[Rfam]
Shown here is a 172-nucleotide RNA sequence from Mycobacterium tuberculosis, a member of the family "ncRv12659 sRNA". Taxonomically the source falls in Mycobacterium tuberculosis (Bacteria, Actinomycetota, Mycobacteriaceae, Mycobacterium tuberculosis complex). A reference for the family is Houghton et al. (2013), "A small RNA encoded in the Rv2660c locus of Mycobacterium tuberculosis is induced during starvation and infection", PLoS One. It is annotated as a small RNA.

RNA sequence: GUCGCCUGGUCAGAGGCUUUCUGUACAGGUCAGACAGUAUCCCACCGGCCCACUAGUGAAACUGGUUCAAUCCCAGUAUCGCGCACCACGAUUGACCUGCGGUUUCAUCCACAAAAUCUGGGCUGCGUGAACUAAAUGUGAACUGACUCGGUGCAACCACCGAAAGGUUCCU
Numbered sequence: 001g002u003c004g005c006c007u008g009g010u011c012a013g014a015g016g017c018u019u020u021c022u023g024u025a026c027a028g029g030u031c032a033g034a035c036a037g038u039a040u041c042c043c044a045c046c047g048g049c050c051c052a053c054u055a056g057u058g059a060a061a062c063u064g065g066u067u068c069a070a071u072c073c074c075a076g077u078a079u080c081g082c083g084c085a086c087c088a089c090g091a092u093u094g095a096c097c098u099g100c101g102g103u104u105u106c107a108u109c110c111a112c113a114a115a116a117u118c119u120g121g122g123c124u125g126c127g128u129g130a131a132c133u134a135a136a137u138g139u140g141a142a143c144u145g146a147c148u149c150g151g152u153g154c155a156a157c158c159a160c161c162g163a164a165a166g167g168u169u170c171c172u
Stems, first nucleotide, its partner, number of pairs: 001035003004030005011023004043129003046125007056108009067095006076086002140170005148163006
The family's consensus secondary structure was predicted with RNAfold.